[Rfam]
RNA sequence: AGGAGUGCGGUGAUGAGCCUAUUUUGUGGACUAGAGUUUCUGAUUUGGGUCUUUUAACCCAGAAUCUGAUUAACAAACCCUUGGCUGUCUGAGCACUUAC
Number, nucleotide and partner (000 for none) at each position: 001a000002g000003g098004a097005g096006u095007g094008c093009g000010g000011u000012g000013a000014u000015g000016a000017g000018c000019c000020u000021a000022u000023u000024u000025u000026g000027u000028g000029g000030a000031c000032u000033a000034g000035a000036g000037u000038u000039u069040c068041u000042g000043a000044u064045u062046u061047g060048g059049g058050u000051c000052u000053u000054u000055u000056a000057a000058c049059c048060c047061a046062g045063a000064a044065u000066c000067u000068g040069a039070u000071u000072a000073a000074c000075a000076a000077a000078c000079c000080c000081u000082u000083g000084g000085c000086u000087g000088u000089c000090u000091g000092a000093g008094c007095a006096c005097u004098u003099a000100c000
Record summary
Shown here is a 100-nucleotide RNA from Carya illinoinensis, a member of the family "Small nucleolar RNA Z157/R69/R10". NCBI's taxonomy places the organism under Eukaryota, Euphyllophyta, Gunneridae, Juglandaceae, Carya. The literature on the family includes a 2003 paper in Nucleic Acids Res by Chen et al., "The high diversity of snoRNAs in plants: identification and comparative study of 120 snoRNA genes from Oryza sativa". It scores 72 bits against the family's covariance model. Rfam links the family to the GO terms RNA processing and nucleolus. By type it is a C/D-box small nucleolar RNA. Its Rfam clan is "SNORD52 clan". The base pairs follow the family's consensus structure, which was predicted with PFOLD.